[Rfam]
RNA sequence: AGAGUGUUAUGAUGUUGGAAGGAAACUUCCGAGUCUAGCUCGUCGCUGGCCCCUUGAUUAUUCAAGGGGU
Numbered sequence: 001a002g003a004g005u006g007u008u009a010u011g012a013u014g015u016u017g018g019a020a021g022g023a024a025a026c027u028u029c030c031g032a033g034u035c036u037a038g039c040u041c042g043u044c045g046c047u048g049g050c051c052c053c054u055u056g057a058u059u060a061u062u063c064a065a066g067g068g069g070u
Base pairs, nucleotide, nucleotide: 002041003040004039005038011035012034013033017030018029019028020027021026049070050069051068052067053066054065055064056063057062
Overview: This 70-nucleotide RNA sequence from Enterococcus alcedinis belongs to the Rfam family "L17 ribosomal protein downstream element". NCBI's taxonomy places the organism under Bacteria, Bacillati, Bacillota, Bacilli, Enterococcus. It scores 55 bits against the family's covariance model.